ASdes TB sRNA: a 68-nucleotide sequence from Mycobacterium sp. ACS1612. Taxonomically the source falls in Mycobacterium (Bacteria, Actinomycetota, Actinomycetes, Mycobacteriales). Rfam 15.1 lists 1,192 matches to the family in 825 species. Rfam classes the family as a small RNA.

[Rfam]
RNA sequence: UUGGCGGCAGGGUCGAUCUCGCGGGUGACGACGAGGUAGUUUCGCAGCGCGAUGGCGUGCAGAUGCUC
Numbered sequence: 001u002u003g004g005c006g007g008c009a010g011g012g013u014c015g016a017u018c019u020c021g022c023g024g025g026u027g028a029c030g031a032c033g034a035g036g037u038a039g040u041u042u043c044g045c046a047g048c049g050c051g052a053u054g055g056c057g058u059g060c061a062g063a064u065g066c067u068c
Stems, first nucleotide, its partner, number of pairs: 005062001008059002012029002016026003035056001037054002040052002043049002